[Rfam]
RNA sequence: AUAAGAAUGACCGCGUGUGGGCAGGAAGCGUGGAGCGAAGCCGCGAGCCGAUGAACAAGAAUCGAAAUGCCGACCGGAGCGAGCGGGCAAGCAACCGCAACGCUCUCGUGGCCAAGGAGCGGCAGCGUAGAUCCGAGGGUUGUACGGUGAAGGAUUGCGUUC
Numbered sequence: 001a002u003a004a005g006a007a008u009g010a011c012c013g014c015g016u017g018u019g020g021g022c023a024g025g026a027a028g029c030g031u032g033g034a035g036c037g038a039a040g041c042c043g044c045g046a047g048c049c050g051a052u053g054a055a056c057a058a059g060a061a062u063c064g065a066a067a068u069g070c071c072g073a074c075c076g077g078a079g080c081g082a083g084c085g086g087g088c089a090a091g092c093a094a095c096c097g098c099a100a101c102g103c104u105c106u107c108g109u110g111g112c113c114a115a116g117g118a119g120c121g122g123c124a125g126c127g128u129a130g131a132u133c134c135g136a137g138g139g140u141u142g143u144a145c146g147g148u149g150a151a152g153g154a155u156u157g158c159g160u161u162c
Base pairs, nucleotide, nucleotide: 001016002015005012028162030160031159032158036153040148041147042146043145045143046141047140048139049138062136063135064134066132069128070127074122075121076120077105078104079103080102083098084097085096086095
RNA: Group II catalytic intron D1-D4-3
Organism: Azomonas macrocytogenes